[Rfam]
Nucleotides: 084
Stems, first nucleotide, its partner, number of pairs: 003082004008077004013072010029057006
Number, partner (000 for none) and nucleotide at each position: 001000g002000u003082g004081g005080u006079u007000c008077u009076g010075g011074u012000u013072u014071c015070a016069a017068u018067c019066c020065a021064u022063a023000c024000c025000a026000a027000g028000a029057u030056u031055u032054u033053c034052u035000a036000u037000g038000u039000g040000u041000a042000c043000a044000a045000a046000u047000a048000a049000u050000c051000u052034a053033g054032a055031a056030a057029a058000u059000c060000u061000u062000g063022u064021g065020u066019g067018g068017a069016u070015u071014g072013a073000u074011a075010c076009c077008a078000g079006g080005g081004u082003c083000a084000g